[Rfam]
RNA sequence: GGUAGUAGCAGCGAAGCGGGGUGAGAAUCCCCGCCGCCGGAAGGGCCAGGGUUCCCCGGCUACGUUCGUCAGCCGGGGGUUAGCCGGUCCUAACCGGGCCCUUAACUGGUGUCCGGGAAGGGGAAACGGGUUAACAUUCCCGUGCCGUGGGGGUACGUUUCGGGGCAACCCAAGGCCUGGCCUCCGACGCCUCAGGGUAGGCGGACUGGGGGCCUCCGUUCGGGGGCGACCCAGCUAACUGCCCGAAGGCCGUGGAGUGCCGUAAUGGCGAGAAGCGGCUGAAGGGGGGAAUGGCCCGCCUUUGGCGGGUUCCGCCGAGCCCCGGGGCCCAUGAAAAGGAGGCCAGGAAGGAUCCCCCACGCCCGUACCGAGAACCGACACAGGUGCCCCUGGGUGAGGAGCCCAAGGCGUCG
Number, nucleotide and partner (000 for none) at each position: 001g000002g000003u000004a000005g000006u000007a000008g000009c000010a000011g000012c000013g000014a000015a000016g034017c033018g032019g031020g030021g029022u000023g000024a000025g000026a000027a000028u000029c021030c020031c019032c018033g017034c016035c410036g409037c408038c407039g000040g000041a000042a000043g389044g388045g387046c386047c000048a000049g369050g368051g000052u000053u000054c078055c077056c076057c075058g074059g073060c000061u000062a000063c000064g070065u000066u000067c000068g000069u000070c064071a000072g000073c059074c058075g057076g056077g055078g054079g000080u000081u000082a000083g000084c000085c365086g364087g363088u000089c122090c121091u000092a000093a000094c116095c115096g114097g113098g112099c111100c109101c108102u000103u000104a000105a000106c000107u000108g101109g100110u000111g099112u098113c097114c096115g095116g094117g000118a000119a000120g000121g090122g089123g000124a000125a000126a143127c142128g141129g140130g139131u000132u000133a000134a000135c000136a000137u000138u000139c130140c129141c128142g127143u126144g000145c000146c361147g360148u359149g358150g357151g356152g355153g354154u000155a000156c000157g000158u000159u000160u000161c000162g000163g000164g000165g000166c000167a000168a000169c000170c000171c000172a000173a000174g000175g000176c000177c000178u000179g000180g000181c000182c000183u340184c339185c338186g000187a000188c000189g328190c327191c326192u325193c324194a000195g322196g321197g320198u000199a000200g316201g315202c314203g313204g312205a000206c234207u233208g232209g231210g230211g000212g000213c000214c000215u000216c000217c000218g000219u000220u000221c000222g000223g000224g000225g000226g000227c000228g000229a000230c210231c209232c208233a207234g206235c000236u000237a000238a000239c288240u287241g000242c285243c000244c000245g000246a000247a000248g000249g279250c278251c277252g276253u275254g000255g000256a000257g000258u000259g269260c268261c267262g000263u000264a000265a000266u000267g261268g260269c259270g000271a000272g000273a000274a000275g253276c252277g251278g250279c249280u000281g000282a000283a000284g000285g242286g000287g240288g239289g000290a000291a000292u000293g000294g000295c000296c000297c000298g000299c000300c304301u000302u000303u000304g300305g000306c000307g000308g000309g000310u000311u000312c204313c203314g202315c201316c200317g000318a000319g000320c197321c196322c195323c000324g193325g192326g191327g190328c189329c000330c000331a000332u000333g000334a000335a000336a000337a000338g185339g184340a183341g000342g000343c000344c000345a000346g000347g000348a000349a000350g000351g000352a000353u000354c153355c152356c151357c150358c149359a148360c147361g146362c000363c087364c086365g085366u000367a000368c050369c049370g000371a000372g000373a000374a000375c384376c383377g000378a000379c000380a000381c000382a000383g376384g375385u000386g046387c045388c044389c043390c000391u405392g404393g403394g402395u000396g000397a000398g000399g000400a000401g000402c394403c393404c392405a391406a000407g038408g037409c036410g035411u000412c000413g000
RNA: Archaeal large subunit ribosomal RNA, nucleotides 1418 to 1830